[Rfam]
RNA: Lysine riboswitch aptamer
Organism: Weissella cibaria
Nucleotides: 171
Stems, first nucleotide, its partner, number of pairs: 006166006017082005025074001034066006086110010111137002114134002118130004139156007
Number, partner (000 for none) and nucleotide at each position: 001000a002000u003000g004000a005000u006166u007165g008164a009163u010162a011161g012000a013000g014000g015000u016000u017082g018081c019080a020079a021078u022000c023000g024000a025074c026000a027000u028000g029000a030000g031000u032000a033000a034066c035065u036064u037063u038062g039061u040000u041000g042000a043000g044000c045000c046000g047000g048000c049000a050000c051000g052000g053000g054000c055000g056000a057000c058000g059000a060000c061039g062038c063037a064036a065035a066034g067000c068000g069000a070000a071000a072000g073000g074025g075000g076000a077000c078021a079020u080019u081018g082017c083000c084000g085000a086110a087109a088108c089107g090106a091105u092104u093103c094102a095101g096000c097000g098000c099000a100000a101095c102094u103093g104092a105091g106090u107089c108088g109087u110086u111137g112136g113000g114134c115133c116000u117000u118130u119129g120128g121127u122000u123000a124000a125000g126000a127121g128120c129119c130118a131000u132000c133115g134114g135000a136112c137111u138000g139156u140155c141154g142153c143152u144151g145150u146000g147000a148000a149000a150145a151144c152143a153142g154141c155140g156139g157000g158000g159000a160000g161011c162010u163009a164008u165007c166006g167000u168000c169000a170000c171000a